[Rfam]
RNA: MIR812 microRNA precursor family
RNA sequence: UUUAAGUGCAGUCAUGAUUUUUCACGCACAACUUUAAUUAUCCGUCUUAUUUAAAAAAAAUUAAGAAAAAUUUAAAAGCAUAAGUUGCGAGUAAAGUGAUAUUCAUGUUUUGUCAUCUCAUAACAACAAAAAUACUAAUUAUAAAAAAAAUAAAUAAGACGGAUGAUCAAAGUUAGACACGGAAACUUAUUGUUGCACUUAAA
Dot-bracket structure: .............................((((((.((((((((((((((.......................................................................................................)))))))))))))).)))))).............................